[Rfam]
The family of this 71-nucleotide RNA from Paraburkholderia saeva is "int-alpA RNA".

RNA sequence: CCCCUGCCUAGCUUUAGCGGGCGAAAAGCCGGACACCUUCACCGGCCUGACAGGGGCAUCCAUUUUGAGGG
Numbered sequence: 001c002c003c004c005u006g007c008c009u010a011g012c013u014u015u016a017g018c019g020g021g022c023g024a025a026a027a028g029c030c031g032g033a034c035a036c037c038u039u040c041a042c043c044g045g046c047c048u049g050a051c052a053g054g055g056g057c058a059u060c061c062a063u064u065u066u067g068a069g070g071g
Base pairs, nucleotide, nucleotide: 001056002055003054004053005052006051008049011022012021013020014019028046029045030044031043032042036071037070038069039068040067041066
The organism belongs to Paraburkholderia, within Bacteria. Acidobacteria (1 example), Planctomycetes (1 example), Proteobacteria. The family's RNA type in Rfam is small RNA.